Shown here is a 76-nucleotide RNA sequence from Parnassius apollo, a member of the family "Mammalian CPEB3 ribozyme". The match comes from Rfam's covariance-model search (53 bits). The literature on the family includes a 2006 paper in Science by Salehi-Ashtiani et al., "A genomewide search for ribozymes reveals an HDV-like sequence in the human CPEB3 gene".
[Rfam]
RNA sequence: UUCGUAGUAGUGGGGUCACUGUAGAAGCGUGCUCGUCGCGAUCCCUGCCAGCCCUUUUCAGGGCUGCAAUUCUACA
Numbered sequence: 001u002u003c004g005u006a007g008u009a010g011u012g013g014g015g016u017c018a019c020u021g022u023a024g025a026a027g028c029g030u031g032c033u034c035g036u037c038g039c040g041a042u043c044c045c046u047g048c049c050a051g052c053c054c055u056u057u058u059c060a061g062g063g064c065u066g067c068a069a070u071u072c073u074a075c076a
Base pairs, nucleotide, nucleotide: 012045013044014043015042016041017040020076021075022074023073024072025071026070027039028038029037049066050065051064052063053062054061055060

The source organism's lineage runs through Eukaryota, Arthropoda, Dicondylia, Parnassius and Parnassius. Pairs were carried over by alignment from the consensus structure, which is taken from published work.